[Rfam]
RNA sequence: AUGAAGCGGUGCUUGAGAUCAUUAUCUCUUCCGCCGCGAAGAACAGUGAGGUAUAGUGAAGGCCGAGAUAUCGUUUCAGUCGUCAUUUGUUAUCGGUUGGCGAUUCGAUUGUUGCUCGUCCACAU
Numbered sequence: 001a002u003g004a005a006g007c008g009g010u011g012c013u014u015g016a017g018a019u020c021a022u023u024a025u026c027u028c029u030u031c032c033g034c035c036g037c038g039a040a041g042a043a044c045a046g047u048g049a050g051g052u053a054u055a056g057u058g059a060a061g062g063c064c065g066a067g068a069u070a071u072c073g074u075u076u077c078a079g080u081c082g083u084c085a086u087u088u089g090u091u092a093u094c095g096g097u098u099g100g101c102g103a104u105u106c107g108a109u110u111g112u113u114g115c116u117c118g119u120c121c122a123c124a125u
Base pairs, nucleotide, nucleotide: 006037007036008035009034010033011032015028016027017026018025019024061121062120064118065117066116067115070109071108072107073106079104080103081102082101083100084099085098087096088095
Dot-bracket structure: .....((((((...(((((....)))))...)))))).......................((.((((..((((.....(((((((.((......)).))))))).)))).....)))).))....